Background: Shown here is a 190-nucleotide RNA from Bacillus coahuilensis, a member of the family "6S / SsrS RNA". By type it is a non-coding RNA gene. Lineage of the source: Bacteria > Bacilli > Caryophanales > Bacillus > Bacillus coahuilensis. It scores 104 bits against the family's covariance model.
RNA sequence: CGAGUCCUGAUGUGUUCGACGUUCAAUCUAUCUGUUUUGACCGAACAUUUCUAACUAGGGAGUUCACGUUUUGAAGUGGCGUACAUGCCUUCACUGAAAGGACGUACUAACGCUUCGAAUAGGACACCCACCUGCUUGAGUGCGGGUUCAAAACGUUAGUCUCUCAAGCGACGGCACGAUUGGGACUCGG
Numbered sequence: 001c002g003a004g005u006c007c008u009g010a011u012g013u014g015u016u017c018g019a020c021g022u023u024c025a026a027u028c029u030a031u032c033u034g035u036u037u038u039g040a041c042c043g044a045a046c047a048u049u050u051c052u053a054a055c056u057a058g059g060g061a062g063u064u065c066a067c068g069u070u071u072u073g074a075a076g077u078g079g080c081g082u083a084c085a086u087g088c089c090u091u092c093a094c095u096g097a098a099a100g101g102a103c104g105u106a107c108u109a110a111c112g113c114u115u116c117g118a119a120u121a122g123g124a125c126a127c128c129c130a131c132c133u134g135c136u137u138g139a140g141u142g143c144g145g146g147u148u149c150a151a152a153a154c155g156u157u158a159g160u161c162u163c164u165c166a167a168g169c170g171a172c173g174g175c176a177c178g179a180u181u182g183g184g185a186c187u188c189g190g
Base pairs, nucleotide, nucleotide: 002188003187004186005185006184007183008182009181010180011179012177013176014175015174017173018172033155034154035153036152038150039149040148041146042145058129059128060127062125063124064123065122069119071118072117073116074115075114076113077112083105084104088101089100090099091098